Background:
The family of this 69-nucleotide RNA is "Cyano-1 RNA".

Nucleotides: 069
Base pairs, nucleotide, nucleotide: 018064019063020062021061022060023057024056028052029051030050031048032047033046
Number, partner (000 for none) and nucleotide at each position: 001000u002000u003000a004000u005000g006000u007000g008000u009000g010000a011000a012000g013000g014000a015000g016000u017000g018064g019063u020062u021061u022060u023057c024056u025000a026000a027000a028052a029051u030050g031048g032047u033046g034000g035000a036000a037000a038000c039000a040000a041000g042000g043000a044000a045000a046033c047032a048031c049000u050030u051029a052028u053000a054000u055000u056024a057023g058000c059000a060022a061021a062020a063019a064018c065000c066000a067000u068000u069000a

The base pairs follow the family's consensus structure, which is taken from published work.